[Rfam]
RNA sequence: CACGAUAAGGGCAAACCUAUCGAAAGAUAGGGACGCAAAGCUAUGGGUCUAAGGCCGAUAACGCCAUGAUUGCCAAGCUGCCGCUU
Numbered sequence: 001c002a003c004g005a006u007a008a009g010g011g012c013a014a015a016c017c018u019a020u021c022g023a024a025a026g027a028u029a030g031g032g033a034c035g036c037a038a039a040g041c042u043a044u045g046g047g048u049c050u051a052a053g054g055c056c057g058a059u060a061a062c063g064c065c066a067u068g069a070u071u072g073c074c075a076a077g078c079u080g081c082c083g084c085u086u
Stems, first nucleotide, its partner, number of pairs: 003083002011036002016031006034072001039079004044075003047070003
Rfam assigns this 86-nucleotide RNA from Desulfocucumis palustris to the family "c-di-GMP-I-GGC riboswitch aptamer". Clan: c-di-GMP_I riboswitch clan. Pairs were carried over by alignment from the consensus structure, which is taken from published work.